[Rfam]
Nucleotides: 137
Base pairs, nucleotide, nucleotide: 003060004059005058006057007056008055016046017045018044019043020042021041022040024038073130074129075128076127081123082122083121093113094112095111096109097108
Number, partner (000 for none) and nucleotide at each position: 001000g002000u003060g004059c005058a006057u007056a008055u009000c010000a011000g012000u013000a014000g015000a016046c017045c018044u019043c020042a021041c022040c023000c024038u025000g026000c027000u028000a029000u030000g031000c032000c033000c034000u035000g036000g037000c038024a039000u040022g041021g042020u043019g044018a045017g046016g047000g048000g049000g050000a051000c052000a053000g054000c055008a056007u057006g058005u059004g060003u061000c062000a063000g064000a065000g066000g067000u068000g069000a070000u071000g072000u073130g074129g075128a076127g077000u078000g079000a080000c081123u082122a083121u084000c085000a086000g087000a088000u089000g090000c091000a092000g093113c094112c095111a096109a097108c098000a099000g100000a101000a102000u103000a104000g105000a106000u107000g108097g109096u110000u111095u112094g113093g114000c115000u116000g117000a118000a119000c120000u121083g122082u123081g124000g125000u126000a127076c128075u129074c130073c131000c132000a133000c134000a135000u136000a137000c

Shown here is a 137-nucleotide sequence from Microcebus murinus, a member of the family "Small nucleolar RNA SNORA58".
The family's RNA type in Rfam is H/ACA-box small nucleolar RNA.
NCBI's taxonomy places the organism under Eukaryota, Metazoa, Dipnotetrapodomorpha, Amniota, Microcebus.
Its family is annotated with nucleolus and RNA processing in the Gene Ontology.
ACA52 is a member of the H/ACA class of snoRNA that guide the sites of modification of uridines to pseudouridines.